[Rfam]
RNA sequence: ACUUUAAGUGUAUUUAUACCGAAUAUAAUACCCAAAAUAUGGUUGGGUAGUAUCUACCGAUACACCGUAAAUGUAUCGACUAUCGUGGUGAAACCUAGGAUCG
Numbered sequence: 001a002c003u004u005u006a007a008g009u010g011u012a013u014u015u016a017u018a019c020c021g022a023a024u025a026u027a028a029u030a031c032c033c034a035a036a037a038u039a040u041g042g043u044u045g046g047g048u049a050g051u052a053u054c055u056a057c058c059g060a061u062a063c064a065c066c067g068u069a070a071a072u073g074u075a076u077c078g079a080c081u082a083u084c085g086u087g088g089u090g091a092a093a094c095c096u097a098g099g100a101u102c103g
Base pairs, nucleotide, nucleotide: 018089019088020087021086023083024082025081029049030048031047032046033045034044035043058078059077060076061075062074063073064072
Purine riboswitch aptamer: a 103-nucleotide RNA from Erysipelothrix inopinata.
The source organism's lineage runs through Bacteria, Bacillati, Bacillota, Erysipelotrichaceae and Erysipelothrix.